The record is a 139-nucleotide sequence from Phenylobacterium kunshanense, which matches "Molybdenum/Tungsten riboswitch aptamer (Moco RNA motif)" in Rfam. The literature on the family includes a 2007 paper in Nucleic Acids Res by Weinberg et al., "Identification of 22 candidate structured RNAs in bacteria using the CMfinder comparative genomics pipeline".
[Rfam]
RNA sequence: AACUCAUCUGCUCCGAGCGGUCCUGCCUAAAGCGCCUUCCCGCGCCACGGCGUGUCCGCCGCGCCGGCCCACCCGGCAAGGGUCGCGGGGGAAACCCCGCCGCCUCCCGCGCUUGGAAAGGAGCCCGCGUUGGGACGUC
Numbered sequence: 001a002a003c004u005c006a007u008c009u010g011c012u013c014c015g016a017g018c019g020g021u022c023c024u025g026c027c028u029a030a031a032g033c034g035c036c037u038u039c040c041c042g043c044g045c046c047a048c049g050g051c052g053u054g055u056c057c058g059c060c061g062c063g064c065c066g067g068c069c070c071a072c073c074c075g076g077c078a079a080g081g082g083u084c085g086c087g088g089g090g091g092a093a094a095c096c097c098c099g100c101c102g103c104c105u106c107c108c109g110c111g112c113u114u115g116g117a118a119a120g121g122a123g124c125c126c127g128c129g130u131u132g133g134g135a136c137g138u139c
Stems, first nucleotide, its partner, number of pairs: 003133002010124005017059004022054001024052004032045003063077005080105004085100006106116002